This 94-nucleotide RNA from Sphingobacterium sp. CZ-2 belongs to the Rfam family "SAM-I/IV (S-adenosyl methionine) riboswitch aptamer". The family has 417 seed sequences and 567 matches in Rfam 15.1. Its family is annotated with regulation of gene expression and S-adenosylmethionine metabolic process in the Gene Ontology. Its Rfam clan is "SAM clan". Taxonomically the source falls in Sphingobacterium (Bacteria, Pseudomonadati, Sphingobacteriia, Sphingobacteriaceae). The family's consensus secondary structure is taken from published work. The match comes from Rfam's covariance-model search (48 bits). For this family Rfam cites "The aptamer core of SAM-IV riboswitches mimics the ligand-binding site of SAM-I riboswitches" (Weinberg et al., RNA, 2008).
[Rfam]
RNA sequence: GUAGAGUAUUCAGAAUUGCAUAAGCAAUACCAACCGAGUGAAGACACCGCGGUGGUGAAAUAAUACGGGUUUCCUACCAAAAUAAACGAAAAGG
Number, nucleotide and partner (000 for none) at each position: 001g000002u000003a000004g000005a000006g066007u065008a064009u063010u062011c000012a000013g000014a000015a028016u027017u026018g025019c024020a000021u000022a000023a000024g019025c018026a017027a016028u015029a056030c055031c054032a000033a000034c052035c051036g050037a000038g047039u046040g000041a000042a000043g000044a000045c000046a039047c038048c000049g000050c036051g035052g034053u000054g031055g030056u029057g000058a000059a000060a000061u000062a010063a009064u008065a007066c006067g000068g078069g077070u076071u000072u000073c000074c000075u000076a070077c069078c068079a000080a000081a000082a000083u000084a000085a000086a000087c000088g000089a000090a000091a000092a000093g000094g000